The record is a 413-nucleotide RNA sequence from Thioclava pacifica, which matches "Bacterial RNase P class A" in Rfam. Taxonomically the source falls in Thioclava pacifica (Bacteria, Pseudomonadati, Rhodobacterales, Paracoccaceae). It is annotated as a ribozyme.

[Rfam]
RNA sequence: GCGGAUGGCCGGAUGACCGCGAGCGCCCGUAACCCCGCGUCCAGCGGGUAGUCGGGGGCCCGAGGAAAGUCCGGACUCCAUGAAGCGACGGUGCCGGGUAACGCCCGGGCGGGGCAACCCGACGGAAAGCGCCACAGAGAUGAAACCGCCCUGCUAUGGCAGGGUAAGGGUGAAACGGUGGGGUAAGAGCCCACCGCGGGACUGGCAACAGGACCGGCACGGCAAGCCCCACCGGGAGCAACGCCGAAUAGGGAUCGCGCGCCGCGCUCGGCAACGGGUGACGGCAGGGGAGCUUCGCCCCGAGCGGUCCGGGUUGGCGGCUGGACCCCGUGAGCAAUCGCGGGGCGAGAGGAAUGGUCAUCCAUGGGGCGCAAGCCCCGGGACAGAAUCCGGCUUACAGGCCAUCCGCGCAA
Dot-bracket structure: ((((((((((((((((((.((.((.(((.........................))).)).))....[[[.[[[[[((((.....[.[.((((((((((.....)))))(((((....)))).)((...(((((............(((((((((....)))))))..)).......((((((.......))))))((((..(((....)))..))).)..)))..)))))))))))))...((((......((((((.............................((((..].]..))))...)))))).....))))......((((((((....))))))))..........)))))))..........................]]]]]]]].).))))))))))....